Rfam assigns this 80-nucleotide RNA from Peptococcaceae bacterium CEB3 to the family "Glycine riboswitch aptamer". This family represents the bacterial glycine riboswitch. Lineage of the source: Bacteria > Bacillati > Bacillota > Eubacteriales > Peptococcaceae.
[Rfam]
RNA sequence: CUCUGGAGAGUUUCUCUUCAAGACGAAGGGAACACCAAAGGGGAAGCCGCAAGGCAAAUCUCUCAGGUUCAAGGACAGAG
Numbered sequence: 001c002u003c004u005g006g007a008g009a010g011u012u013u014c015u016c017u018u019c020a021a022g023a024c025g026a027a028g029g030g031a032a033c034a035c036c037a038a039a040g041g042g043g044a045a046g047c048c049g050c051a052a053g054g055c056a057a058a059u060c061u062c063u064c065a066g067g068u069u070c071a072a073g074g075a076c077a078g079a080g
Base pairs, nucleotide, nucleotide: 001080002079003078004077005076012032013031014030015029016028017027018026019025034068035067036066038063041062042061043060046055047054
Its family is annotated with glycine biosynthetic process in the Gene Ontology.